c-di-GMP-I-GGC riboswitch aptamer: a 75-nucleotide sequence from Sulfurovum lithotrophicum. Lineage of the source: Bacteria > Pseudomonadati > Epsilonproteobacteria > Sulfurovaceae > Sulfurovum. The match comes from Rfam's covariance-model search (60 bits).
RNA sequence: UUUAGAAAUGCUAAACCUAUCGUGAGGUAGGGACAGAAAGCUAUGGGUCUCAUGUAGAUUGCCAGGUUGCCGAUA
Numbered sequence: 001u002u003u004a005g006a007a008a009u010g011c012u013a014a015a016c017c018u019a020u021c022g023u024g025a026g027g028u029a030g031g032g033a034c035a036g037a038a039a040g041c042u043a044u045g046g047g048u049c050u051c052a053u054g055u056a057g058a059u060u061g062c063c064a065g066g067u068u069g070c071c072g073a074u075a
Base pairs, nucleotide, nucleotide: 001075003072011036012035016031017030018029019028020027021026034061039068040067041066042065044064045063046062047059048058049057